[Rfam]
RNA sequence: AGCUUUCUAAAUCUGGGCUGAGAUUUCGUCGGACUCCGACCCACCAGGAGUGAUGAGACUUCCGAGGUAAGUGAACUG
Number, nucleotide and partner (000 for none) at each position: 001a000002g077003c000004u075005u074006u073007c000008u071009a000010a000011a068012u067013c066014u000015g000016g063017g062018c000019u000020g061021a060022g059023a000024u058025u057026u056027c055028g054029u053030c052031g000032g000033a000034c000035u000036c000037c000038g000039a000040c000041c000042c000043a000044c000045c000046a000047g000048g000049a000050g000051u000052g030053a029054u028055g027056a026057g025058a024059c022060u021061u020062c017063c016064g000065a000066g013067g012068u011069a000070a000071g008072u000073g006074a005075a004076c000077u002078g000
Rfam assigns this 78-nucleotide RNA from Schistosoma japonicum to the family "mir-3492 microRNA precursor family". It scores 48 bits against the family's covariance model. NCBI's taxonomy places the organism under Eukaryota, Lophotrochozoa, Platyhelminthes, Strigeidida, Schistosoma.